Overview: The family of this 98-nucleotide RNA sequence from Vibrio sp. 10N.286.49.B3 is "Guanidine-I riboswitch aptamer". The base pairs follow the family's consensus structure. NCBI's taxonomy places the organism under Bacteria, Pseudomonadati, Pseudomonadota, Vibrionaceae, Vibrio. This family represents a conserved RNA structure found upstream of the ykkC and yxkD genes in Bacillus subtilis and related genes in other bacteria. The function of this family is unclear although it has been suggested that it may function to switch on efflux pumps and detoxification systems in response to harmful environmental molecules.
RNA sequence: AAAAUAGACAUCUAGGGUUCCGGUUGCGUAGGCAAUGUCUGGACCGAGAGUUGUCAACCUCAUCUGAGGUCACACGGAGGGAUAAAAGCCCGGGAGAU
Number, nucleotide and partner (000 for none) at each position: 001a000002a000003a000004a000005u000006a000007g055008a054009c053010a052011u000012c050013u000014a000015g045016g044017g000018u000019u000020c042021c041022g039023g036024u035025u034026g033027c032028g000029u000030a000031g000032g027033c026034a025035a024036u023037g000038u000039c022040u000041g021042g020043a000044c016045c015046g000047a000048g000049a000050g012051u000052u010053g009054u008055c007056a000057a070058c069059c068060u067061c066062a000063u000064c000065u000066g061067a060068g059069g058070u057071c000072a000073c093074a000075c096076g000077g000078a000079g091080g090081g089082a000083u000084a000085a000086a000087a000088g000089c081090c080091c079092g000093g073094g000095a000096g075097a000098u000